A member of the RNA family "Streptococcus sRNA SpR18" from Anaerococcus hydrogenalis, 134 nucleotides long. By type it is a small RNA. The family has 23 seed sequences and 63 matches in Rfam 15.1. The base pairs follow the family's consensus structure, which was predicted with mfold. Rfam's curators put it in the seed alignment.

RNA sequence: AUUACAAGCUAUAAAGAGAAUGAAAAAUGGCUACUGGUACUCAAAUGGUACUGGAAGUAAAAAAGAAUAAUUAAAAUAAUAGUUCCAAGUGGUUUACAUUUGGACAAAAAAUUAGACCGUAGUUUCAAUGGUUC
Dot-bracket structure: ......((((((..............)))))).....(......((((....(..............).............((.(((((((.....)))))))))...........))))......).......